[Rfam]
RNA: Iron response element II
RNA sequence: ACCUCAUCUUGAACAGUGUUUCAAAUGACUU
Numbered sequence: 001a002c003c004u005c006a007u008c009u010u011g012a013a014c015a016g017u018g019u020u021u022c023a024a025a026u027g028a029c030u031u
Base pairs, nucleotide, nucleotide: 001031004028005027006026007025009024010023011022012021013020014018